[Rfam]
RNA: Small nucleolar RNA SNORA56
RNA sequence: AAGCAGCAGUUAUCCCUUUCCAGUCUGGCUUGUGAGACUCUACAGGAGUCAGUCUGCAAUAGUAAGUUCUUCGGUCUAGCAUCAGGGUUUUCAUGGUGACUUUGGAGUUGCCAUAUAUUA
Number, nucleotide and partner (000 for none) at each position: 001a000002a000003g057004c056005a055006g054007c052008a000009g000010u000011u000012a000013u000014c000015c000016c000017u000018u000019u044020c000021c000022a041023g040024u037025c036026u035027g000028g000029c000030u000031u000032g000033u000034g000035a026036g025037a024038c000039u000040c023041u022042a000043c000044a019045g000046g000047a000048g000049u000050c000051a000052g007053u000054c006055u005056g004057c003058a000059a000060u113061a000062g111063u110064a109065a108066g000067u000068u106069c105070u104071u000072c000073g000074g100075u099076c098077u000078a000079g000080c095081a094082u093083c000084a091085g090086g000087g000088u000089u000090u085091u084092c000093a082094u081095g080096g000097u000098g076099a075100c074101u000102u000103u000104g070105g069106a068107g000108u065109u064110g063111c062112c000113a060114u000115a000116u000117a000118u000119u000120a000